[Rfam]
RNA sequence: UCUAGAACUCGAGAUAUGGGCUAAACACUGAACAGUGUCUGGGCUAUAGAACAAAUUUGGACUUCUCCGUUGUUGCUAUAAUUUGGACUUGAUAACAGCCUUUUUAAAUCUUGGACUCCGCAUGAAAGUCUUAGGCCUACAUCUUAGCUUUCCAUC
Number, nucleotide and partner (000 for none) at each position: 001u000002c000003u154004a000005g152006a151007a150008c147009u146010c000011g145012a144013g143014a142015u141016a000017u139018g138019g137020g136021c134022u133023a132024a131025a000026c000027a129028c128029u127030g000031a000032a000033c000034a000035g123036u122037g121038u000039c000040u000041g119042g118043g117044c000045u115046a000047u000048a112049g111050a000051a109052c000053a000054a105055a104056u000057u000058u000059g100060g099061a000062c098063u097064u000065c000066u000067c000068c000069g000070u000071u000072g088073u087074u086075g000076c000077u000078a000079u000080a000081a000082u000083u000084u000085g000086g074087a073088c072089u000090u000091g000092a000093u000094a000095a000096c000097a063098g062099c060100c059101u000102u000103u000104u055105u054106a000107a000108a000109u051110c000111u049112u048113g000114g000115a045116c000117u043118c042119c041120g000121c037122a036123u035124g000125a000126a000127a029128g028129u027130c000131u024132u023133a022134g021135g000136c020137c019138u018139a017140c000141a015142u014143c013144u012145u011146a009147g008148c000149u000150u007151u006152c005153c000154a003155u000156c000
RNA: MIR2912 microRNA precursor family